[Rfam]
RNA sequence: CCAGCUGCUGGAACGGAGCUGGCCUUGCUAGGGGCGCCACUUAGAGCGCUCCCGUACCCAUGUUGCUUCAAGGAGGAUAUGGCUAUGGCAA
Numbered sequence: 001c002c003a004g005c006u007g008c009u010g011g012a013a014c015g016g017a018g019c020u021g022g023c024c025u026u027g028c029u030a031g032g033g034g035c036g037c038c039a040c041u042u043a044g045a046g047c048g049c050u051c052c053c054g055u056a057c058c059c060a061u062g063u064u065g066c067u068u069c070a071a072g073g074a075g076g077a078u079a080u081g082g083c084u085a086u087g088g089c090a091a
Stems, first nucleotide, its partner, number of pairs: 001022006008016002031052007053087004058082007066075003
Repression of heat shock gene expression (ROSE) element: a 91-nucleotide RNA from Rhizobium sp. BG4. The family has 13 seed sequences and 381 matches in Rfam 15.1. For this family Rfam cites "A mRNA-based thermosensor controls expression of rhizobial heat shock genes" (Nocker et al., Nucleic Acids Res, 2001). Gene Ontology terms of the family: response to temperature stimulus and regulation of translation. From the family's description: This family represents a 5' UTR cis-regulatory element found in heat shock mRNAs and is known as the ROSE (repression of heat shock gene expression) element. The ROSE element is a negative regulator of heat shock gene expression. The secondary structure is thought to be regulated by temperature.